[Rfam]
Shown here is a 98-nucleotide RNA sequence from Methylocella tundrae, a member of the family "Glycine riboswitch aptamer". This family represents the bacterial glycine riboswitch. The match comes from Rfam's covariance-model search (64 bits).

RNA sequence: UAUAUCCCAGCGGAAGAGUCCGGCUCUCUAAUUGGAGAAUCGGCGCCGAAGGCGCAACCGCCCCGGAAACGCUCAGGCCCAUGGACCGCUGGGAAGAU
Dot-bracket structure: .....((((((((......((((................)))).(((((..(((...((.....))...))))).))).......)))))))).....